[Rfam]
RNA sequence: AGCUAAUUGGGACAUAAAGUAAGGACGUCCUAGGGAGGACUACUUACAGUUCCAAGAGGCCCC
Numbered sequence: 001a002g003c004u005a006a007u008u009g010g011g012a013c014a015u016a017a018a019g020u021a022a023g024g025a026c027g028u029c030c031u032a033g034g035g036a037g038g039a040c041u042a043c044u045u046a047c048a049g050u051u052c053c054a055a056g057a058g059g060c061c062c063c
Stems, first nucleotide, its partner, number of pairs: 002060003007055007021045003027040005
RNA: Pestivirus 3' UTR SLI